[Rfam]
Shown here is a 129-nucleotide RNA sequence from Cellulosimicrobium arenosum, a member of the family "ZMP/ZTP riboswitch aptamer (pfl RNA motif)". It scores 42 bits against the family's covariance model. The organism belongs to Cellulosimicrobium, within Bacteria. Rfam links the family to the GO terms regulation of purine nucleotide biosynthetic process and one-carbon metabolic process.
RNA sequence: CGUGCGCGUCGCGACUGGCGCGGCCCGGUUCGUCCGUCACCUCAUACCGACGCCGACACCGGGCAGGGUGGAUCACCACCGGGGAGCGACUGCUGUGCAGACGACGGGUCGUUCGCCUGGGCCCCGGGU
Numbered sequence: 001c002g003u004g005c006g007c008g009u010c011g012c013g014a015c016u017g018g019c020g021c022g023g024c025c026c027g028g029u030u031c032g033u034c035c036g037u038c039a040c041c042u043c044a045u046a047c048c049g050a051c052g053c054c055g056a057c058a059c060c061g062g063g064c065a066g067g068g069u070g071g072a073u074c075a076c077c078a079c080c081g082g083g084g085a086g087c088g089a090c091u092g093c094u095g096u097g098c099a100g101a102c103g104a105c106g107g108g109u110c111g112u113u114c115g116c117c118u119g120g121g122c123c124c125c126g127g128g129u
Base pairs, nucleotide, nucleotide: 003095004094008090009089010088011087012086015083016082017117018116019115020114068079069078070077071076106124107123108122109121110120